Description: This 113-nucleotide RNA from Saccharopolyspora sp. ASAGF58 belongs to the Rfam family "mraW RNA". The match comes from Rfam's covariance-model search (58 bits).
RNA sequence: UGAUCCGGGUUUCGUGAGGCCUCGGUCCGCUCGGCUAUCGCAUGCCUGGUGCAUCUUCCCCGGCACCAGGACGCGACGGGCGGGCGGGGACCUGACGGGAUCCGGACUACGAG
Numbered sequence: 001u002g003a004u005c006c007g008g009g010u011u012u013c014g015u016g017a018g019g020c021c022u023c024g025g026u027c028c029g030c031u032c033g034g035c036u037a038u039c040g041c042a043u044g045c046c047u048g049g050u051g052c053a054u055c056u057u058c059c060c061c062g063g064c065a066c067c068a069g070g071a072c073g074c075g076a077c078g079g080g081c082g083g084g085c086g087g088g089g090a091c092c093u094g095a096c097g098g099g100a101u102c103c104g105g106a107c108u109a110c111g112a113g
Stems, first nucleotide, its partner, number of pairs: 010100006018092002021089003025085009039075003043071001045070008
NCBI's taxonomy places the organism under Bacteria, Actinomycetota, Pseudonocardiales, Pseudonocardiaceae, Saccharopolyspora.
The family's consensus secondary structure is taken from published work.